[Rfam]
RNA: c-di-AMP riboswitch aptamer (ydaO/yuaA leader)
RNA sequence: GGCGGUGACCUGCCGAGUCCGUGCAGUCAGGAGGCACGGAGCCGGGGAACCAUUCGACCUUCGAUGAAGGUCCGGGGUGAAUCGGCGCGAUUUGCGCCGUAGGGCGACUUCCCUGCCCGAAUCCGUCAGCUAACCCGGUAGGCGCAAGUGGAAGACCGU
Numbered sequence: 001g002g003c004g005g006u007g008a009c010c011u012g013c014c015g016a017g018u019c020c021g022u023g024c025a026g027u028c029a030g031g032a033g034g035c036a037c038g039g040a041g042c043c044g045g046g047g048a049a050c051c052a053u054u055c056g057a058c059c060u061u062c063g064a065u066g067a068a069g070g071u072c073c074g075g076g077g078u079g080a081a082u083c084g085g086c087g088c089g090a091u092u093u094g095c096g097c098c099g100u101a102g103g104g105c106g107a108c109u110u111c112c113c114u115g116c117c118c119g120a121a122u123c124c125g126u127c128a129g130c131u132a133a134c135c136c137g138g139u140a141g142g143c144g145c146a147a148g149u150g151g152a153a154g155a156c157c158g159u
Base pairs, nucleotide, nucleotide: 011144012143013142014141018040019039020038021037022036023035024034041139042138043137044136045135046134051074075124076123077122083099084098085097086096102118103117104116105115